[Rfam]
Annotation
Small nucleolar RNA SNORA1: a 131-nucleotide RNA from Heterocephalus glaber. Lineage of the source: Eukaryota > Bilateria > Vertebrata > Tetrapoda > Heterocephalus. Rfam describes the family as follows. ACA1 is a member of the H/ACA class of snoRNA that guide the sites of modification of uridines to pseudouridines.

RNA sequence: GGUAAUAUUGAUUAGAAUGGGCACUGUUAAUUGGUGUCUAAAAUUAUUCGGUGUGACUAAAAUUGAGGCAUAGGUCAUGCUUCCAUCACAGUAUUCAUAUUACAGUGGUGACAAUGAGACCUGUAACAUUU
Numbered sequence: 001g002g003u004a005a006u007a008u009u010g011a012u013u014a015g016a017a018u019g020g021g022c023a024c025u026g027u028u029a030a031u032u033g034g035u036g037u038c039u040a041a042a043a044u045u046a047u048u049c050g051g052u053g054u055g056a057c058u059a060a061a062a063u064u065g066a067g068g069c070a071u072a073g074g075u076c077a078u079g080c081u082u083c084c085a086u087c088a089c090a091g092u093a094u095u096c097a098u099a100u101u102a103c104a105g106u107g108g109u110g111a112c113a114a115u116g117a118g119a120c121c122u123g124u125a126a127c128a129u130u131u
Base pairs, nucleotide, nucleotide: 003053004052018040019039020038021037022036023035024034070124071123072122073121074120084110085109086108087107088106089105